[Rfam]
RNA sequence: AGGCCUAGAGAGAGAAGCAAAGUCUGAUCUAUCGCCUCCAUGGCAGCUGUUGAUCAGCACUUGCCUCUCUCUUUCGCUCUG
Numbered sequence: 001a002g003g004c005c006u007a008g009a010g011a012g013a014g015a016a017g018c019a020a021a022g023u024c025u026g027a028u029c030u031a032u033c034g035c036c037u038c039c040a041u042g043g044c045a046g047c048u049g050u051u052g053a054u055c056a057g058c059a060c061u062u063g064c065c066u067c068u069c070u071c072u073u074u075c076g077c078u079c080u081g
Stems, first nucleotide, its partner, number of pairs: 008073008017064004024057006032049001034047002